Source information: This 116-nucleotide RNA sequence from Campylobacter mucosalis belongs to the Rfam family "Ribosomal S15 leader". On this family, see Benard et al., Biochimie 1996: "Pseudoknot and translational control in the expression of the S15 ribosomal protein". It is annotated as a cis-regulatory leader. The E. coli Ribosomal S15 gene 5' UTR can form two alternative structures. Rfam links the family to the GO term regulation of translation, ncRNA-mediated. The source organism's lineage runs through Bacteria, Pseudomonadati, Campylobacterota, Campylobacterales and Campylobacter mucosalis.

RNA sequence: AUUUUAUGUUUUCUUUGCUAUAAUCGCCCUUUUUAAUCUUACCAAUCAGGAGGUCUAAAAUGGCUUUGGAUUCGGCUAAAAAAGCAGAAAUAGUUGCGAAAUUCGCUAGAAAAGAC
Numbered sequence: 001a002u003u004u005u006a007u008g009u010u011u012u013c014u015u016u017g018c019u020a021u022a023a024u025c026g027c028c029c030u031u032u033u034u035a036a037u038c039u040u041a042c043c044a045a046u047c048a049g050g051a052g053g054u055c056u057a058a059a060a061u062g063g064c065u066u067u068g069g070a071u072u073c074g075g076c077u078a079a080a081a082a083a084g085c086a087g088a089a090a091u092a093g094u095u096g097c098g099a100a101a102u103u104c105g106c107u108a109g110a111a112a113a114g115a116c
Base pairs, nucleotide, nucleotide: 004023005022006021007020008019046070047069049067050066051065052064